The record is a 147-nucleotide RNA sequence, which matches "IS605-orfB-II RNA" in Rfam. Rfam's curators put it in the seed alignment.
RNA sequence: CAUAAUGAGACUAAUAUAGUCUUGGAUUGUAUAGAGGGUAGUCGCAGUCGCCCCAACUCCGACUCUAGCGCAGUAAACUGCGCAAGAGUAAGGUGAGAAACAACUUAAGUUGGAAACUUUAAUUUUGUUAAGAAAUUAGAGAACUGU
Numbered sequence: 001c002a003u004a005a006u007g008a009g010a011c012u013a014a015u016a017u018a019g020u021c022u023u024g025g026a027u028u029g030u031a032u033a034g035a036g037g038g039u040a041g042u043c044g045c046a047g048u049c050g051c052c053c054c055a056a057c058u059c060c061g062a063c064u065c066u067a068g069c070g071c072a073g074u075a076a077a078c079u080g081c082g083c084a085a086g087a088g089u090a091a092g093g094u095g096a097g098a099a100a101c102a103a104c105u106u107a108a109g110u111u112g113g114a115a116a117c118u119u120u121a122a123u124u125u126u127g128u129u130a131a132g133a134a135a136u137u138a139g140a141g142a143a144c145u146g147u
Base pairs, nucleotide, nucleotide: 006024007023008022009021010020011019012018036053037052038051039050044147045146046145047144057097058096059095062089063088064087065086066085068083069082070081071080073078101112102111103110104109117141118140119139120138121137122136123135124134125133